[Rfam]
RNA sequence: AAAACAAAGAAGAAGCUAUCCGCUUCUCACCUUACAUGACGUUAUUGUUACUAAGGUUGAUACGGAUUUGAACGUAUAGCGGAUAGUAUUACUAUCCGCUAUUUAUUUUUAUA
Numbered sequence: 001a002a003a004a005c006a007a008a009g010a011a012g013a014a015g016c017u018a019u020c021c022g023c024u025u026c027u028c029a030c031c032u033u034a035c036a037u038g039a040c041g042u043u044a045u046u047g048u049u050a051c052u053a054a055g056g057u058u059g060a061u062a063c064g065g066a067u068u069u070g071a072a073c074g075u076a077u078a079g080c081g082g083a084u085a086g087u088a089u090u091a092c093u094a095u096c097c098g099c100u101a102u103u104u105a106u107u108u109u110u111a112u113a
Base pairs, nucleotide, nucleotide: 011027012026013025014024015023016022029057030056031055037050038049039048040047078100079099080098081097082096083095084094085093086092087091
Dot-bracket structure: ..........((((((.....)))))).(((.....((((......))))....)))....................((((((((((...)))))))))).............